[Rfam]
RNA sequence: ACGGGCGUUAGCUCGGCACUCUCUGCGAACAUACGUGUUAUCAUACAUUCAGAGGGGAAGGUCUGAGGAACCAGCGGGGGCUGAAAAGCCAACCGUAGCACAUACGGAAAACGCCCAACAGAAAACAGCUACGCGUGAAAGUGGCGUUAUGGUCAAGGCUGUGCCUAUAGUCAAAUUGCCGAGGCUUUUGUAACUCAAUUCAGACUACUCAAUGUCCGU
Numbered sequence: 001a002c003g004g005g006c007g008u009u010a011g012c013u014c015g016g017c018a019c020u021c022u023c024u025g026c027g028a029a030c031a032u033a034c035g036u037g038u039u040a041u042c043a044u045a046c047a048u049u050c051a052g053a054g055g056g057g058a059a060g061g062u063c064u065g066a067g068g069a070a071c072c073a074g075c076g077g078g079g080g081c082u083g084a085a086a087a088g089c090c091a092a093c094c095g096u097a098g099c100a101c102a103u104a105c106g107g108a109a110a111a112c113g114c115c116c117a118a119c120a121g122a123a124a125a126c127a128g129c130u131a132c133g134c135g136u137g138a139a140a141g142u143g144g145c146g147u148u149a150u151g152g153u154c155a156a157g158g159c160u161g162u163g164c165c166u167a168u169a170g171u172c173a174a175a176u177u178g179c180c181g182a183g184g185c186u187u188u189u190g191u192a193a194c195u196c197a198a199u200u201c202a203g204a205c206u207a208c209u210c211a212a213u214g215u216c217c218g219u
Base pairs, nucleotide, nucleotide: 001219002218003217004216007213008212009211012183013182014181015180016179017178018177021054022053023052024051025050063203064202065201066200067199070153071152072151079090080089081088082087093107094106095105096104097103110148111147112146113145114144115143184191185190